[Rfam]
Nucleotides: 086
Stems, first nucleotide, its partner, number of pairs: 001014004031078003035074004040069003046058003
Number, partner (000 for none) and nucleotide at each position: 001014c002013u003012g004011g005000g006000a007000u008000a009000g010000a011004c012003u013002a014001g015000g016000a017000g018000a019000u020000c021000u022000u023000c024000u025000g026000c027000u028000c029000u030000g031078c032077a033076c034000a035074a036073c037072c038071a039000g040069c041068c042067a043000c044000a045000c046058g047057g048056c049000a050000c051000a052000g053000u054000g055000c056048g057047c058046c059000g060000a061000c062000a063000a064000u065000g066000g067042u068041g069040g070000c071038u072037g073036g074035u075000g076033g077032u078031g079000c080000g081000a082000g083000a084000a085000c086000a
Shown here is an 86-nucleotide RNA sequence from Orthoflavivirus nilense, a member of the family "Flavivirus 3' UTR cis-acting replication element (CRE)". Lineage of the source: Viruses > Orthornavirae > Orthoflavivirus > Euflavivirus > Orthoflavivirus nilense. The family's consensus secondary structure is taken from published work. About the family: This family represents the Flavivirus 3'-SL cis-acting replication element (CRE). The family is thought to play a crucial role in replication and is thought to be needed for the formation of a 'replication complex'. Although evidence has been presented for an existence of a pseudoknot structure in this RNA, it does not appear to be well conserved across flaviviruses. Deletions of the 3' UTR of flaviviruses have been shown to be lethal for infectious clones. A reference for the family is Zeng et al. (1998), "Identification of specific nucleotide sequences within the conserved 3'-SL in the dengue type 2 virus genome required for replication", J Virol.